[Rfam]
RNA: RNase MRP
Organism: Rhodofomes roseus
RNA sequence: GCGCCGUCUGAAGAAUCGCCGUCGCAGCUCACGCACAGGGAGCCCCGCGCUCCCGCCCUCCAGCUGUGGGGAAAGUCCCCGGAGAUGCAGGCCCACCCUCGUCCACCUCGUGGAAAGCGGCCGCCCCCAAGCACGGCGGGACCGGACGAGGCGGAGGGAACGCUUUGCACGGGCUGCUUGCCUGGUGAGCACUCGCUGCUAGCCCCUCCAGUCUGCCGCUCGACUUGCGGUCGUGUGCUCGGCGAAGGCACCGACGUGCGAAGACACGAGCACAUCGGCUGCUCGGGUGCACGGCGUGCGGUCGGGCAUAUGUUGCUCAUAGACACAGUUAUGCGAUUGCGGGCACUUCGGGCUCGUCAACGGAAUGGGGCUUACUCUCAUUCGGCG
Numbered sequence: 001g002c003g004c005c006g007u008c009u010g011a012a013g014a015a016u017c018g019c020c021g022u023c024g025c026a027g028c029u030c031a032c033g034c035a036c037a038g039g040g041a042g043c044c045c046c047g048c049g050c051u052c053c054c055g056c057c058c059u060c061c062a063g064c065u066g067u068g069g070g071g072a073a074a075g076u077c078c079c080c081g082g083a084g085a086u087g088c089a090g091g092c093c094c095a096c097c098c099u100c101g102u103c104c105a106c107c108u109c110g111u112g113g114a115a116a117g118c119g120g121c122c123g124c125c126c127c128c129a130a131g132c133a134c135g136g137c138g139g140g141a142c143c144g145g146a147c148g149a150g151g152c153g154g155a156g157g158g159a160a161c162g163c164u165u166u167g168c169a170c171g172g173g174c175u176g177c178u179u180g181c182c183u184g185g186u187g188a189g190c191a192c193u194c195g196c197u198g199c200u201a202g203c204c205c206c207u208c209c210a211g212u213c214u215g216c217c218g219c220u221c222g223a224c225u226u227g228c229g230g231u232c233g234u235g236u237g238c239u240c241g242g243c244g245a246a247g248g249c250a251c252c253g254a255c256g257u258g259c260g261a262a263g264a265c266a267c268g269a270g271c272a273c274a275u276c277g278g279c280u281g282c283u284c285g286g287g288u289g290c291a292c293g294g295c296g297u298g299c300g301g302u303c304g305g306g307c308a309u310a311u312g313u314u315g316c317u318c319a320u321a322g323a324c325a326c327a328g329u330u331a332u333g334c335g336a337u338u339g340c341g342g343g344c345a346c347u348u349c350g351g352g353c354u355c356g357u358c359a360a361c362g363g364a365a366u367g368g369g370g371c372u373u374a375c376u377c378u379c380a381u382u383c384g385g386c387g
Stems, first nucleotide, its partner, number of pairs: 002387005009380003014338006022069007039053005073373003077370004090122004233309003238306006248299004256292004276285002278282001339357006
Dot-bracket structure: .(((((..(((..((((((..(((((((..........(((((.....))))).........)))))))...[[[.[[[[.........((((.........................))))..............................................................................................................(((..((((((....((((....((((................(((...).))...))))...)))).))))))))).......................))))))((((((.......)))))).........]]]]]]]....)))..)))))